[Rfam]
RNA sequence: UUAACAGGAUGAAUUUUUUUGUUAUUUGUAUGUUUUUCUGGCAUCUCUAAUGUUAGGGCUUUUCAGCUCGAUGAAUACAACCCUUGACUAUAUAUCUGAAC
Numbered sequence: 001u002u003a004a005c006a007g008g009a010u011g012a013a014u015u016u017u018u019u020u021g022u023u024a025u026u027u028g029u030a031u032g033u034u035u036u037u038c039u040g041g042c043a044u045c046u047c048u049a050a051u052g053u054u055a056g057g058g059c060u061u062u063u064c065a066g067c068u069c070g071a072u073g074a075a076u077a078c079a080a081c082c083c084u085u086g087a088c089u090a091u092a093u094a095u096c097u098g099a100a101c
Base pairs, nucleotide, nucleotide: 057068058067059066060065
The record is a 101-nucleotide RNA from Candida viswanathii, which matches "Small nucleolar RNA snR48" in Rfam.
The literature on the family includes a 1999 paper in Science by Lowe and Eddy, "A computational screen for methylation guide snoRNAs in yeast".
Rfam classes the family as a C/D-box small nucleolar RNA.
NCBI's taxonomy places the organism under Eukaryota, Opisthokonta, Saccharomycotina, Debaryomycetaceae, Candida.